Archaeal large subunit ribosomal RNA: a 99-nucleotide part of an RNA from Candidatus Haloredivivus sp. G17. Clan: LSU clan. Pairs were carried over by alignment from the consensus structure, which is taken from published work. The sequence is in the family's curated seed alignment.

[Rfam]
RNA sequence: GUUAUGGCAUUCAAGCGUCGAUACAGGUGAAAGAAUCUGCCGAGAGGCUUUAGUAUGAAUCCUGUGGAGCAGUGUCAUAGCAUCCGUUUUGAAAAACGG
Numbered sequence: 001g002u003u004a005u006g007g008c009a010u011u012c013a014a015g016c017g018u019c020g021a022u023a024c025a026g027g028u029g030a031a032a033g034a035a036u037c038u039g040c041c042g043a044g045a046g047g048c049u050u051u052a053g054u055a056u057g058a059a060u061c062c063u064g065u066g067g068a069g070c071a072g073u074g075u076c077a078u079a080g081c082a083u084c085c086g087u088u089u090u091g092a093a094a095a096a097c098g099g
Stems, first nucleotide, its partner, number of pairs: 001081010015070002023065005028059001032056001039048003084099004